This 35-nucleotide RNA from Odocoileus virginianus belongs to the Rfam family "Iron response element I".
For this family Rfam cites "Ferritin L and H subunits are differentially regulated on a post-transcriptional level" (Sammarco et al., J Biol Chem, 2008).
It scores 45 bits against the family's covariance model.
Gene Ontology term of the family: response to iron ion.
By type it is a cis-regulatory element.

RNA sequence: CUGUCUCUGGCUUCAACAGUGCUUGGACAGAAUAG
Numbered sequence: 001c002u003g004u005c006u007c008u009g010g011c012u013u014c015a016a017c018a019g020u021g022c023u024u025g026g027a028c029a030g031a032a033u034a035g
Stems, first nucleotide, its partner, number of pairs: 001035004006031003010028001012027005017021001